Overview:
The family of this 117-nucleotide RNA sequence from Tritonibacter litoralis is "ALIL pseudoknot". On this family, see Mazauric et al., J Biol Chem 2008: "Apical loop-internal loop RNA pseudoknots: a new type of stimulator of -1 translational frameshifting in bacteria". Taxonomically the source falls in Tritonibacter (Bacteria, Pseudomonadati, Alphaproteobacteria, Rhodobacterales). Rfam links the family to the GO term positive regulation of translational frameshifting.

RNA sequence: UGCAUAUUUUGCUCAGGCGGAGCUCGACCGCCCGUUCAAGAAAUGAUCGCAUUCAUCGAGGAUCACCGCGCUGAUCAUGGGGUCGAGCCGAUUUGCAGGGUUCUGCCGAUUGCCCCA
Numbered sequence: 001u002g003c004a005u006a007u008u009u010u011g012c013u014c015a016g017g018c019g020g021a022g023c024u025c026g027a028c029c030g031c032c033c034g035u036u037c038a039a040g041a042a043a044u045g046a047u048c049g050c051a052u053u054c055a056u057c058g059a060g061g062a063u064c065a066c067c068g069c070g071c072u073g074a075u076c077a078u079g080g081g082g083u084c085g086a087g088c089c090g091a092u093u094u095g096c097a098g099g100g101u102u103c104u105g106c107c108g109a110u111u112g113c114c115c116c117a
Base pairs, nucleotide, nucleotide: 016032017031018030019029020028078117079116080115081114082113089112090111092109093108095106096105097104098103